[Rfam]
RNA sequence: UCAGGUCUUUUUGCGGUCUGGGCUUGCUGUCAAGUUAAUAUCCAGGAAGCCCUUACCCCAAAAAGCAUCUG
Numbered sequence: 001u002c003a004g005g006u007c008u009u010u011u012u013g014c015g016g017u018c019u020g021g022g023c024u025u026g027c028u029g030u031c032a033a034g035u036u037a038a039u040a041u042c043c044a045g046g047a048a049g050c051c052c053u054u055a056c057c058c059c060a061a062a063a064a065g066c067a068u069c070u071g
Stems, first nucleotide, its partner, number of pairs: 007065007015057003020052004025047001027045002
This 71-nucleotide RNA sequence from Oryzias latipes belongs to the Rfam family "mir-129 microRNA precursor family". Rfam links the family to the GO terms synapse, gene silencing by miRNA and long-term synaptic potentiation. On this family, see Lagos-Quintana et al., Curr Biol 2002: "Identification of tissue-specific microRNAs from mouse". Rfam 15.1 lists 1,242 matches to the family in 559 species. The source organism's lineage runs through Eukaryota, Actinopterygii, Percomorphaceae, Atherinomorphae and Oryzias.